MIR8024 microRNA precursor family: an 87-nucleotide sequence from Solanum tuberosum.
The family's consensus secondary structure was predicted with RNAalifold.

RNA sequence: UUGGAGGAUUUGAAGAUUUCAACUUGCAAGCUUGAAGAAUUUAAAGACUUCAACUUGCAUAAUUGGCUGAAUUUAAAGACUUCAAGA
Number, nucleotide and partner (000 for none) at each position: 001u085002u084003g083004g082005a081006g080007g000008a000009u077010u076011u075012g074013a073014a072015g000016a000017u000018u000019u066020c065021a064022a000023c000024u000025u059026g058027c057028a056029a000030g000031c000032u053033u052034g051035a050036a049037g048038a000039a000040u000041u000042u000043a000044a000045a000046g000047a000048c037049u036050u035051c034052a033053a032054c000055u000056u028057g027058c026059a025060u000061a000062a000063u000064u021065g020066g019067c000068u000069g000070a000071a000072u014073u013074u012075a011076a010077a009078g000079a000080c006081u005082u004083c003084a002085a001086g000087a000

About this RNA
Rfam 15.1 lists 661 matches to the family in 8 species.